[Rfam]
RNA: IS605-orfB-II RNA
RNA sequence: CAUGAUGAGACUACAUUGGUCUUGGAUUGUAUAGAGGGUAGUCGCGGUCGCCCCAACUCCGACUCUUGCAUAGUAUACUGUGCUAGAGUAAGGUGAGAAACAACUUUGGUUGGAAACUUUAAUUUUGUUAAGAAAUUAAAGAACCGU
Numbered sequence: 001c002a003u004g005a006u007g008a009g010a011c012u013a014c015a016u017u018g019g020u021c022u023u024g025g026a027u028u029g030u031a032u033a034g035a036g037g038g039u040a041g042u043c044g045c046g047g048u049c050g051c052c053c054c055a056a057c058u059c060c061g062a063c064u065c066u067u068g069c070a071u072a073g074u075a076u077a078c079u080g081u082g083c084u085a086g087a088g089u090a091a092g093g094u095g096a097g098a099a100a101c102a103a104c105u106u107u108g109g110u111u112g113g114a115a116a117c118u119u120u121a122a123u124u125u126u127g128u129u130a131a132g133a134a135a136u137u138a139a140a141g142a143a144c145c146g147u
Stems, first nucleotide, its partner, number of pairs: 006024007036053004044147004057097003062089005068083006101112004117141009